[Rfam]
This 387-nucleotide sequence from Gloeomargaritaceae cyanobacterium C42_A2020_066 belongs to the Rfam family "transfer-messenger RNA". Clan: tRNA clan. The literature on the family includes a 1996 paper in RNA by Williams and Bartel, "Phylogenetic analysis of tmRNA secondary structure". Pairs were carried over by alignment from the consensus structure, which is taken from published work. Rfam classes the family as a non-coding RNA gene. It scores 112 bits against the family's covariance model. Gene Ontology term of the family: RNA catabolic process.
RNA sequence: GGGGCCGUAAUGGCUUCGACGUGCUGGUGAACUCCAAACCGUGAUACAGGCCGAGGGUGAACUGCCCCUCGAAAAUAACCAGUUCAAAUGCGUAACUGCGAACAACAUCGUUCCUUUUGCUCGUAAAGCGGCCGUUGUGGCUGCCUAAGAGUCUAUAGACUAGACUUCGAGCCUCAGACUACGACGCCGUUAAGGAGUCUGAGCAACCCCAACGGCUGCACCACGACGUCUUCUGAGGACGGACUUGUGGUUAAGAUUAGUCCUCAGUCCCUCACUGGUCGGGGUUAUGCCAGUCCUCGUUGUUCAGGUCAGAGCAACUAAGCCUGUGAAUGAGCGCCAGGUCAAUACCCGGUACGGACAGCGGUUCGAUUCCGCUCGGCUCCAUAA
Numbered sequence: 001g002g003g004g005c006c007g008u009a010a011u012g013g014c015u016u017c018g019a020c021g022u023g024c025u026g027g028u029g030a031a032c033u034c035c036a037a038a039c040c041g042u043g044a045u046a047c048a049g050g051c052c053g054a055g056g057g058u059g060a061a062c063u064g065c066c067c068c069u070c071g072a073a074a075a076u077a078a079c080c081a082g083u084u085c086a087a088a089u090g091c092g093u094a095a096c097u098g099c100g101a102a103c104a105a106c107a108u109c110g111u112u113c114c115u116u117u118u119g120c121u122c123g124u125a126a127a128g129c130g131g132c133c134g135u136u137g138u139g140g141c142u143g144c145c146u147a148a149g150a151g152u153c154u155a156u157a158g159a160c161u162a163g164a165c166u167u168c169g170a171g172c173c174u175c176a177g178a179c180u181a182c183g184a185c186g187c188c189g190u191u192a193a194g195g196a197g198u199c200u201g202a203g204c205a206a207c208c209c210c211a212a213c214g215g216c217u218g219c220a221c222c223a224c225g226a227c228g229u230c231u232u233c234u235g236a237g238g239a240c241g242g243a244c245u246u247g248u249g250g251u252u253a254a255g256a257u258u259a260g261u262c263c264u265c266a267g268u269c270c271c272u273c274a275c276u277g278g279u280c281g282g283g284g285u286u287a288u289g290c291c292a293g294u295c296c297u298c299g300u301u302g303u304u305c306a307g308g309u310c311a312g313a314g315c316a317a318c319u320a321a322g323c324c325u326g327u328g329a330a331u332g333a334g335c336g337c338c339a340g341g342u343c344a345a346u347a348c349c350c351g352g353u354a355c356g357g358a359c360a361g362c363g364g365u366u367c368g369a370u371u372c373c374g375c376u377c378g379g380c381u382c383c384a385u386a387a
Base pairs, nucleotide, nucleotide: 001383002382003381004380005379006378007377020356021355022354023353024352025351026350027349034341035340039336042333044331045330047326048325049324050323051322052071053070054069055068056067058086059085060084061083062082063081064080149168150167151165152164153163154162173203174202175201176200177199178198180196182194186216187215188214189213191212220251221250222249223248224247225246226245233267234266235265236264270308271307272306274304276302277301278300281298282297283296289318294313295312360376361375362374363373364372